[Rfam]
The record is a 93-nucleotide sequence from Crenobacter intestini, which matches "Glycine riboswitch aptamer" in Rfam.
The match comes from Rfam's covariance-model search (53 bits).
Pairs were carried over by alignment from the consensus structure.
RNA sequence: AUACGCCGAUUGGAGAGCGGCCGCGUCGCGGCCCACCGAAGGGGCAGCCGGCCUUGCGCCGUAAACUCUCAGGUAAAAGGACAAGGGGAGAGG
Numbered sequence: 001a002u003a004c005g006c007c008g009a010u011u012g013g014a015g016a017g018c019g020g021c022c023g024c025g026u027c028g029c030g031g032c033c034c035a036c037c038g039a040a041g042g043g044g045c046a047g048c049c050g051g052c053c054u055u056g057c058g059c060c061g062u063a064a065a066c067u068c069u070c071a072g073g074u075a076a077a078a079g080g081a082c083a084a085g086g087g088g089a090g091a092g093g
Stems, first nucleotide, its partner, number of pairs: 006088002010084003019033004035074003038070002042068003048061001